[Rfam]
The family of this 371-nucleotide RNA sequence from Pontibacter fetidus is "transfer-messenger RNA".
A search with the family's covariance model found it, with a score of 112 bits.
Its Rfam clan is "tRNA clan".
NCBI's taxonomy places the organism under Bacteria, Pseudomonadati, Cytophagia, Hymenobacteraceae, Pontibacter.
By type it is a non-coding RNA gene.
Nucleotides: 371
Stems, first nucleotide, its partner, number of pairs: 001367007019340003023336001025334001027332001030329001032327001035324005043313005048069005056083005062077001113147007148190006155179007165204004207233009218248002251291001253289004258284001264280002268305004277297001344360005
Number, partner (000 for none) and nucleotide at each position: 001367g002366g003365g004364g005363u006362a007361g008000a009000c010000c011000g012000g013000a014000a015000u016000u017000g018000a019340c020339a021338g022000c023336u024000u025334g026000u027332g028000c029000a030329g031000a032327u033000u034000g035324c036323g037322u038321g039320u040000a041000a042000g043313c044312a045311u046310g047309u048069c049068g050067g051066g052065u053000g054000a055000u056083g057082a058081a059080c060079g061000u062077a063000c064000c065052a066051c067050c068049u069048g070000u071000u072000a073000a074000a075000a076000a077062u078000c079060c080059g081058u082057u083056c084000g085000a086000a087000c088000a089000a090000u091000a092000a093000c094000u095000g096000g097000c098000g099000a100000a101000u102000a103000u104000a105000a106000c107000u108000a109000c110000g111000c112000c113147a114146u115145g116144g117143c118142u119141g120000c121000u122000u123000a124000a125000u126000c127000u128000a129000g130000g131000u132000a133000u134000u135000a136000a137000g138000c139000a140000c141119u142118a143117g144116c145115c146114a147113u148190a149189g150188u151187c152186u153185c154000g155179u156178g157177c158176a159175g160174g161173u162000u163000u164000c165204g166203u167202a168201a169000a170000u171000c172000u173161g174160c175159u176158u177157g178156c179155a180000c181000a182000u183000c184000a185153g186152a187151g188150g189149c190148u191000u192000c193000g194000a195000u196000c197000c198000g199000a200000u201168u202167u203166a204165c205000u206000a207233g208232u209231u210230u211229g212228u213227g214226u215225a216000a217000c218248g219247g220000u221000g222000u223000g224000g225215u226214g227213c228212a229211c230210a231209a232208g233207c234000a235000a236000a237000a238000c239000u240000a241000a242000a243000g244000c245000a246000c247219c248218u249000a250000a251291g252000g253289a254288g255287g256286g257000c258284g259000c260000a261000u262000a263000a264280g265279c266000c267000u268305g269304g270303u271302u272000u273000a274000u275000a276000c277297u278000u279265g280264c281000a282000a283000a284258c285000u286256c287255c288254c289253u290000a291251c292000a293000a294000u295000c296000c297277g298000a299000a300000u301000a302271a303270a304269c305268c306000u307000a308000a309047g310046c311045a312044u313043g314000u315000a316000g317000a318000a319000g320039g321038c322037a323036c324035g325000a326000c327032g328000g329030u330000u331000u332027c333000c334025u335000u336023g337000u338021c339020u340019g341000g342000a343000c344360c345359a346358g347357g348356g349000u350000u351000c352000g353000a354000a355000u356348c357347c358346c359345u360344g361007c362006u363005a364004c365003u366002c367001c368000a369000c370000c371000a